[Rfam]
RNA: ASpks TB sRNA
RNA sequence: CUUCAGCGACCCCAGCCACAGCGGCAGGUUCUCCGGCCGCUCCUGGCCGUAGGUGGCCAACAGCGCCUGCGCCUC
Numbered sequence: 001c002u003u004c005a006g007c008g009a010c011c012c013c014a015g016c017c018a019c020a021g022c023g024g025c026a027g028g029u030u031c032u033c034c035g036g037c038c039g040c041u042c043c044u045g046g047c048c049g050u051a052g053g054u055g056g057c058c059a060a061c062a063g064c065g066c067c068u069g070c071g072c073c074u075c
Base pairs, nucleotide, nucleotide: 015025016024017023031071033069038065039064044059045058047056048055049054